[Rfam]
RNA sequence: GGGUGUCGUGCUCUUCCUUGCACGACAGGAUUCACGCGCAGGUCGGGCCGCCGCG
Dot-bracket structure: ....(((((((........)))))))..........(((.(((......))))))